Rfam assigns this 67-nucleotide sequence from Loxodonta africana to the family "mir-8/mir-141/mir-200 microRNA precursor family". Gene Ontology terms of the family: miRNA-mediated post-transcriptional gene silencing and RISC complex. The family is grouped with related families in Rfam's "mir-8 microRNA precursor clan". A reference for the family is Lagos-Quintana et al. (2003), "New microRNAs from mouse and human", RNA. The family has 164 seed sequences and 2,669 matches in Rfam 15.1.
RNA sequence: AUCGCCAUCUUACUGGGCAGCAUUGGAUGGUGUCUGUGUUCUAAUACUGCCUGGUAAUGAUGACGGC
Numbered sequence: 001a002u003c004g005c006c007a008u009c010u011u012a013c014u015g016g017g018c019a020g021c022a023u024u025g026g027a028u029g030g031u032g033u034c035u036g037u038g039u040u041c042u043a044a045u046a047c048u049g050c051c052u053g054g055u056a057a058u059g060a061u062g063a064c065g066g067c
Stems, first nucleotide, its partner, number of pairs: 002066003006062004010057011022045006